[Rfam]
RNA sequence: ACCGGAUAGCUCAUCUAUCUGUAAGCCAACGGCGGUCAAUAAAGGGAUGAAUUCGCUCAUUGGUGGAAUUAACAGCGGCUGGGUUGCCUUGUCGAAGAUAGUGUCUUACAGAGAUUGAUGUCAGCAUUCGUGUUUCGGCGUAGGCUGAAAUGCGGAGGUUGCUAAGUACUGGGGUACUGCCCGAGGGUAGCAAUACAACAGGGAAAACUCAGAGCAUCAGAUCAGCUGUAAGAUGGCACAUCGGAGAGGAUUUACUUGGCACCUGCCAUCAUGUGCGGGAACUCCCCCUUUU
Numbered sequence: 001a002c003c004g005g006a007u008a009g010c011u012c013a014u015c016u017a018u019c020u021g022u023a024a025g026c027c028a029a030c031g032g033c034g035g036u037c038a039a040u041a042a043a044g045g046g047a048u049g050a051a052u053u054c055g056c057u058c059a060u061u062g063g064u065g066g067a068a069u070u071a072a073c074a075g076c077g078g079c080u081g082g083g084u085u086g087c088c089u090u091g092u093c094g095a096a097g098a099u100a101g102u103g104u105c106u107u108a109c110a111g112a113g114a115u116u117g118a119u120g121u122c123a124g125c126a127u128u129c130g131u132g133u134u135u136c137g138g139c140g141u142a143g144g145c146u147g148a149a150a151u152g153c154g155g156a157g158g159u160u161g162c163u164a165a166g167u168a169c170u171g172g173g174g175u176a177c178u179g180c181c182c183g184a185g186g187g188u189a190g191c192a193a194u195a196c197a198a199c200a201g202g203g204a205a206a207a208c209u210c211a212g213a214g215c216a217u218c219a220g221a222u223c224a225g226c227u228g229u230a231a232g233a234u235g236g237c238a239c240a241u242c243g244g245a246g247a248g249g250a251u252u253u254a255c256u257u258g259g260c261a262c263c264u265g266c267c268a269u270c271a272u273g274u275g276c277g278g279g280a281a282c283u284c285c286c287c288c289u290u291u292u
Stems, first nucleotide, its partner, number of pairs: 001036003004020006025033003041291006049283001052281003056277001058273002061271006073265003078260007087249004092244001097242003101239004105232007113223002115220007122161004127156013162166001169212005178205001180203003187196003
RNA: Metazoan signal recognition particle RNA